[Rfam]
RNA: Alphaproteobacteria transfer-messenger RNA
RNA sequence: CCCCUUGAAACCCUGCCCCCGUGGCCCUAUAUCAGAAAUGUCUCGCUUGCGGGACUAUGGUGAUAAACGCGCAUGUAAUAAACGGAUCGGACCCGGGGGCGGUACCCGGCGACUCCACCAAAACACCUGUCUUUGCAGGGGGUAUGGGGUCGAAAUAGGAUCGACGGACGUCUAAAGAUGUUUGCUUUUGCUCGGUGAGUUACCACCGUUAUCGGUACAUUUAAGCUAGUUGCAAAUGACAACAGAGCUCCAGUUGCCCUGGCUGCGUAAGCAGUCCGGAAUACUGAAAACUUAGUCCUAGGCUUUGCAGCCUAGGCGGGGUCCGCAGGCACCUGGCAACAGAAGCCUGCACU
Numbered sequence: 001c002c003c004c005u006u007g008a009a010a011c012c013c014u015g016c017c018c019c020c021g022u023g024g025c026c027c028u029a030u031a032u033c034a035g036a037a038a039u040g041u042c043u044c045g046c047u048u049g050c051g052g053g054a055c056u057a058u059g060g061u062g063a064u065a066a067a068c069g070c071g072c073a074u075g076u077a078a079u080a081a082a083c084g085g086a087u088c089g090g091a092c093c094c095g096g097g098g099g100c101g102g103u104a105c106c107c108g109g110c111g112a113c114u115c116c117a118c119c120a121a122a123a124c125a126c127c128u129g130u131c132u133u134u135g136c137a138g139g140g141g142g143u144a145u146g147g148g149g150u151c152g153a154a155a156u157a158g159g160a161u162c163g164a165c166g167g168a169c170g171u172c173u174a175a176a177g178a179u180g181u182u183u184g185c186u187u188u189u190g191c192u193c194g195g196u197g198a199g200u201u202a203c204c205a206c207c208g209u210u211a212u213c214g215g216u217a218c219a220u221u222u223a224a225g226c227u228a229g230u231u232g233c234a235a236a237u238g239a240c241a242a243c244a245g246a247g248c249u250c251c252a253g254u255u256g257c258c259c260u261g262g263c264u265g266c267g268u269a270a271g272c273a274g275u276c277c278g279g280a281a282u283a284c285u286g287a288a289a290a291c292u293u294a295g296u297c298c299u300a301g302g303c304u305u306u307g308c309a310g311c312c313u314a315g316g317c318g319g320g321g322u323c324c325g326c327a328g329g330c331a332c333c334u335g336g337c338a339a340c341a342g343a344a345g346c347c348u349g350c351a352c353u
Stems, first nucleotide, its partner, number of pairs: 040055005059192005069185002071181004083170002087167003093109005110152007193208004199218002202216003319334004325350006